[Rfam]
RNA: Eukaryotic large subunit ribosomal RNA, nucleotides 1 to 420
Organism: Hanseniaspora uvarum
RNA sequence: UGACCUCAAAUCAGGUAGGAUUACCCGCUGAACUUAAGCAUAUCAAUAAGCGGAGGAAAAGAAACCAACUGGGAUUACCUUAGUAACGGCGAGUGAAGCGGUAAAAGCUCAAAUUUGAAAUCUGGUACUUUCAGUGCCCGAGUUGUAAUUUGUAGAAUUUGUCUUUGAUUAGGUCCUUGUCUAUGUUCCUUGGAACAGGACGUCAUAGAGGGUGAGAAUCCCGUUUGGCGAGGAUACCUUUUCUCUGUAAGACUUUUUCGAAGAGUCGAGUUGUUUGGGAAUGCAGCUCAAAGUGGGUGGUAAAUUCCAUCUAAAGCUAAAUAUUGGCGAGAGACCGAUAGCGAACAAGUACAGUGAUGGAAAGAUGAAAAGAACUUUGAAAAGAGAGUGAAAAAGUACGUGAAAUUGUUGAAAGGGAAG
Number, nucleotide and partner (000 for none) at each position: 001u000002g000003a000004c000005c000006u000007c000008a000009a000010a000011u000012c000013a000014g000015g000016u000017a000018g000019g000020a000021u000022u000023a000024c055025c053026c052027g051028c050029u049030g000031a000032a000033c000034u000035u042036a041037a000038g000039c000040a000041u036042a035043u000044c000045a000046a000047u000048a000049a029050g028051c027052g026053g025054a000055g024056g000057a000058a000059a000060a000061g000062a000063a000064a000065c072066c071067a000068a000069c000070u000071g066072g065073g000074a000075u000076u103077a102078c101079c100080u000081u000082a000083g000084u000085a000086a094087c093088g000089g000090c000091g000092a000093g087094u086095g000096a000097a000098g000099c000100g079101g078102u077103a076104a000105a000106a318107g317108c316109u315110c000111a000112a150113a149114u148115u147116u000117g000118a144119a143120a000121u141122c140123u000124g138125g137126u136127a135128c000129u000130u000131u000132c000133a000134g000135u127136g126137c125138c124139c000140g122141a121142g000143u119144u118145g000146u000147a115148a114149u113150u112151u000152g000153u000154a000155g259156a258157a256158u000159u000160u000161g000162u252163c251164u250165u249166u000167g243168a242169u000170u000171a239172g238173g237174u000175c233176c232177u231178u230179g229180u228181c227182u000183a000184u000185g201186u000187u200188c199189c198190u197191u000192g000193g000194a000195a000196c000197a190198g189199g188200a187201c185202g000203u000204c208205a000206u000207a000208g204209a000210g000211g221212g220213u000214g000215a000216g000217a000218a000219u000220c212221c211222c000223g000224u000225u000226u000227g181228g180229c179230g178231a177232g176233g175234a000235u000236a000237c173238c172239u171240u000241u000242u168243c167244u000245c000246u000247g000248u000249a165250a164251g163252a162253c000254u000255u000256u157257u000258u156259c155260g000261a000262a000263g000264a000265g000266u000267c000268g289269a288270g287271u286272u285273g284274u283275u000276u000277g000278g000279g000280a000281a000282u000283g274284c273285a272286g271287c270288u269289c268290a000291a000292a000293g000294u000295g312296g311297g310298u309299g308300g000301u000302a000303a000304a000305u000306u000307c000308c299309a298310u297311c296312u295313a000314a000315a109316g108317c107318u106319a000320a000321a000322u000323a000324u000325u000326g000327g000328c000329g000330a000331g000332a000333g000334a000335c000336c000337g000338a000339u000340a000341g000342c000343g000344a000345a000346c000347a000348a000349g000350u000351a000352c359353a358354g000355u000356g000357a000358u353359g352360g000361a000362a000363a000364g000365a000366u000367g000368a000369a000370a000371a000372g000373a000374a000375c386376u385377u384378u383379g000380a000381a000382a000383a378384g377385a376386g375387a000388g000389u000390g000391a000392a000393a000394a000395a000396g000397u000398a000399c000400g000401u000402g000403a000404a000405a000406u000407u000408g000409u000410u000411g000412a000413a000414a000415g000416g000417g000418a000419a000420g000